[Rfam]
A member of the RNA family "Selenocysteine transfer RNA" from Paludibaculum fermentans, 91 nucleotides long.
Pairs were carried over by alignment from the consensus structure, which is taken from published work.
Its Rfam clan is "tRNA clan".
RNA sequence: GGGAGCCAAUCUUGCCCGGUGGUAGGCACGGUCUUCAAAACCGCUGAACGGUUCUCUGGAUCGUUGGUCGGUUCGACUCCGACUGGUUCCC
Numbered sequence: 001g002g003g004a005g006c007c008a009a010u011c012u013u014g015c016c017c018g019g020u021g022g023u024a025g026g027c028a029c030g031g032u033c034u035u036c037a038a039a040a041c042c043g044c045u046g047a048a049c050g051g052u053u054c055u056c057u058g059g060a061u062c063g064u065u066g067g068u069c070g071g072u073u074c075g076a077c078u079c080c081g082a083c084u085g086g087u088u089c090c091c
Stems, first nucleotide, its partner, number of pairs: 001091008011026006029043004047065005068082004